[Rfam]
RNA: small nucleolar RNA snoR135
RNA sequence: AAGGCAGUGAUAGUGUGUAUCGGUUUAGUGCUAAUAUUUAUGCACUUUUCUCGAAAGAGUUCUCUGCUAUAACAAUUUGACAAAGGGAAGGUGGGCAGUUGUCUUCCAUUUUUUUCUAUUGGAAAGUUCAACAAUCAUUUUCCCUACAUUU
Number, nucleotide and partner (000 for none) at each position: 001a000002a000003g000004g067005c066006a065007g064008u000009g062010a061011u000012a000013g000014u000015g045016u044017g043018u042019a041020u040021c000022g000023g000024u000025u000026u000027a000028g000029u000030g000031c000032u000033a000034a000035u000036a000037u000038u000039u000040a020041u019042g018043c017044a016045c015046u000047u000048u000049u000050c000051u000052c000053g000054a000055a000056a000057g000058a000059g000060u000061u010062c009063u000064c007065u006066g005067c004068u000069a000070u000071a000072a000073c000074a000075a000076u000077u000078u000079g000080a000081c000082a000083a000084a145085g144086g143087g142088a141089a140090g139091g138092u137093g136094g135095g000096c000097a000098g132099u131100u130101g129102u000103c000104u000105u000106c000107c000108a000109u000110u000111u000112u000113u000114u000115u000116c000117u000118a000119u000120u000121g000122g000123a000124a000125a000126g000127u000128u000129c101130a100131a099132c098133a000134a000135u094136c093137a092138u091139u090140u089141u088142c087143c086144c085145u084146a000147c000148a000149u000150u000151u000